[Rfam]
RNA sequence: CUUGUCAACGGUAAGCGGACCGAAGGGAGCAUUAAGGAGUUGACAAGGUUUACCAAC
Numbered sequence: 001c002u003u004g005u006c007a008a009c010g011g012u013a014a015g016c017g018g019a020c021c022g023a024a025g026g027g028a029g030c031a032u033u034a035a036g037g038a039g040u041u042g043a044c045a046a047g048g049u050u051u052a053c054c055a056a057c
Base pairs, nucleotide, nucleotide: 001048002046003045004044005043006042007041008040009039
This 57-nucleotide RNA from Scopulibacillus darangshiensis belongs to the Rfam family "Bacillus-plasmid RNA". Rfam classes the family as a small RNA.